[Rfam]
RNA: che1 RNA
RNA sequence: CGGACAGGGGGGUUCCUGCCGCAAUUGGCAGGGCCUGUCCAGAGGUUGCGCGAACGCGUGGCCAGUGGUUGUCGCUCGGGGGUGAUCGCCG
Numbered sequence: 001c002g003g004a005c006a007g008g009g010g011g012g013u014u015c016c017u018g019c020c021g022c023a024a025u026u027g028g029c030a031g032g033g034c035c036u037g038u039c040c041a042g043a044g045g046u047u048g049c050g051c052g053a054a055c056g057c058g059u060g061g062c063c064a065g066u067g068g069u070u071g072u073c074g075c076u077c078g079g080g081g082g083u084g085a086u087c088g089c090c091g
Base pairs, nucleotide, nucleotide: 002040003039004038005037006036007035008034014033015032016031017030018029019028020027044063045062046061047060048059049058050057051056